[Rfam]
RNA sequence: GUGAAAGCAAUGACUGGGCCGAGUAAUCCGGGUCCUGUGGAGUCAGCGAGUUGGGAGAUGGUGUGAGCCCAACCUCCGCAUCGGAUGAAAAUCCCCCAGGAGUAUCUCUUGAACCAUACAGUAGAGAUGAUCGGGUCAUUCCGUUAUCGAUGUUAUGAGUGAGAAUCAGGGAAGGCAGGCUUUAGUUCAUCAGGGGCAUUUUCAGCUAUCUUUUGAACAAAGGGCACUUUGUCUUCUUAGGUUCUAACAAGGGUGGUACCGCGAGUCAACUUCUCGUCCCUUCA
Numbered sequence: 001g002u003g004a005a006a007g008c009a010a011u012g013a014c015u016g017g018g019c020c021g022a023g024u025a026a027u028c029c030g031g032g033u034c035c036u037g038u039g040g041a042g043u044c045a046g047c048g049a050g051u052u053g054g055g056a057g058a059u060g061g062u063g064u065g066a067g068c069c070c071a072a073c074c075u076c077c078g079c080a081u082c083g084g085a086u087g088a089a090a091a092u093c094c095c096c097c098a099g100g101a102g103u104a105u106c107u108c109u110u111g112a113a114c115c116a117u118a119c120a121g122u123a124g125a126g127a128u129g130a131u132c133g134g135g136u137c138a139u140u141c142c143g144u145u146a147u148c149g150a151u152g153u154u155a156u157g158a159g160u161g162a163g164a165a166u167c168a169g170g171g172a173a174g175g176c177a178g179g180c181u182u183u184a185g186u187u188c189a190u191c192a193g194g195g196g197c198a199u200u201u202u203c204a205g206c207u208a209u210c211u212u213u214u215g216a217a218c219a220a221a222g223g224g225c226a227c228u229u230u231g232u233c234u235u236c237u238u239a240g241g242u243u244c245u246a247a248c249a250a251g252g253g254u255g256g257u258a259c260c261g262c263g264a265g266u267c268a269a270c271u272u273c274u275c276g277u278c279c280c281u282u283c284a
Stems, first nucleotide, its partner, number of pairs: 007103002015098004026086006039076002050073006105130002107127004132143003162245006250281004261277005
T-box leader: a 284-nucleotide RNA sequence from Paenibacillus larvae. Uncharged tRNA acts as the effector for transcription antitermination of genes in the T-box leader family. The organism belongs to Paenibacillus larvae subsp. larvae, within Bacteria. Pairs were carried over by alignment from the consensus structure, which is taken from published work. The family's RNA type in Rfam is cis-regulatory leader.